[Rfam]
RNA sequence: GCAACCCUGCUGUGUGCGUAAAAUGGUCUCGAUGUUUUGAACCAACAUCUUUUACAUUGGGAGUCUGGGCUUCGUGAGCGUAAAACAACGCCUGGCACAGGACUGUUGGAACUCAUGAGAGGACACCCACCUGCUUAGGCAGGCUCAAAACUCGGUUUAUAAACGGCAUGGUGGGGCUUCU
Numbered sequence: 001g002c003a004a005c006c007c008u009g010c011u012g013u014g015u016g017c018g019u020a021a022a023a024u025g026g027u028c029u030c031g032a033u034g035u036u037u038u039g040a041a042c043c044a045a046c047a048u049c050u051u052u053u054a055c056a057u058u059g060g061g062a063g064u065c066u067g068g069g070c071u072u073c074g075u076g077a078g079c080g081u082a083a084a085a086c087a088a089c090g091c092c093u094g095g096c097a098c099a100g101g102a103c104u105g106u107u108g109g110a111a112c113u114c115a116u117g118a119g120a121g122g123a124c125a126c127c128c129a130c131c132u133g134c135u136u137a138g139g140c141a142g143g144c145u146c147a148a149a150a151c152u153c154g155g156u157u158u159a160u161a162a163a164c165g166g167c168a169u170g171g172u173g174g175g176g177c178u179u180c181u
Stems, first nucleotide, its partner, number of pairs: 003178001005176011017165003034151003038147003042143002059128003063124004073117006085106002091101004